Small nucleolar RNA snR48: a 120-nucleotide sequence from Kazachstania africana.
For this family Rfam cites "A computational screen for methylation guide snoRNAs in yeast" (Lowe and Eddy, Science, 1999).
The match comes from Rfam's covariance-model search (86 bits).
It is annotated as a C/D-box small nucleolar RNA.
Clan: SNORD60 clan.

Nucleotides: 120
Stems, first nucleotide, its partner, number of pairs: 058087006
Number, partner (000 for none) and nucleotide at each position: 001000u002000u003000a004000a005000c006000a007000u008000g009000a010000u011000g012000a013000u014000u015000u016000u017000u018000u019000a020000u021000c022000a023000c024000c025000a026000u027000a028000u029000g030000u031000u032000u033000u034000u035000u036000u037000u038000u039000c040000u041000g042000g043000c044000a045000u046000c047000u048000c049000u050000a051000a052000u053000g054000u055000u056000a057000g058087g059086g060085u061084g062083a063082g064000u065000g066000a067000c068000g069000u070000u071000u072000a073000a074000g075000u076000a077000c078000c079000g080000a081000a082063c083062u084061c085060a086059c087058u088000c089000g090000a091000u092000g093000a094000a095000u096000a097000c098000a099000a100000c101000u102000u103000u104000g105000u106000g107000a108000c109000u110000a111000u112000a113000c114000u115000c116000u117000g118000a119000a120000a